The record is a 139-nucleotide sequence from Triticum aestivum, which matches "Small nucleolar RNA Z247" in Rfam. It scores 60 bits against the family's covariance model. Pairs were carried over by alignment from the consensus structure, which was predicted with PFOLD. Lineage of the source: Eukaryota > Viridiplantae > Spermatophyta > Pooideae > Triticum. Rfam links the family to the GO terms nucleolus and RNA processing. Rfam 15.1 lists 7,071 matches to the family in 142 species.

[Rfam]
RNA sequence: CCCAUCGAUGAUGAUGAGCUCAUCUCCUACAUCACCUCUGGCCUCGACAUGGAGUACCAACCUCUUGUCUCCGCCAACGAAGCCCGCACCGAGCCCAUCAGCAUCGACGAUCUCUACGCCCAGAUGAGUAACUUCGAUC
Numbered sequence: 001c002c003c004a005u006c007g008a009u010g011a012u013g014a015u016g017a018g019c020u021c022a023u024c025u026c027c028u029a030c031a032u033c034a035c036c037u038c039u040g041g042c043c044u045c046g047a048c049a050u051g052g053a054g055u056a057c058c059a060a061c062c063u064c065u066u067g068u069c070u071c072c073g074c075c076a077a078c079g080a081a082g083c084c085c086g087c088a089c090c091g092a093g094c095c096c097a098u099c100a101g102c103a104u105c106g107a108c109g110a111u112c113u114c115u116a117c118g119c120c121c122a123g124a125u126g127a128g129u130a131a132c133u134u135c136g137a138u139c
Base pairs, nucleotide, nucleotide: 004138005137006136007135008134090106091105092104